[Rfam]
RNA: c-di-GMP-I riboswitch aptamer
RNA sequence: UAUACCAAAGUGCAAACCAGCCGAAAAGCUGGAGUGCCAAGCUGCGGAUAUAAAGCUUUUAAUGCUAUGGUAGCCGGGCUGCCGAU
Numbered sequence: 001u002a003u004a005c006c007a008a009a010g011u012g013c014a015a016a017c018c019a020g021c022c023g024a025a026a027a028g029c030u031g032g033a034g035u036g037c038c039a040a041g042c043u044g045c046g047g048a049u050a051u052a053a054a055g056c057u058u059u060u061a062a063u064g065c066u067a068u069g070g071u072a073g074c075c076g077g078g079c080u081g082c083c084g085a086u
Stems, first nucleotide, its partner, number of pairs: 012037002017032005040080004045076003048071002055065002058062001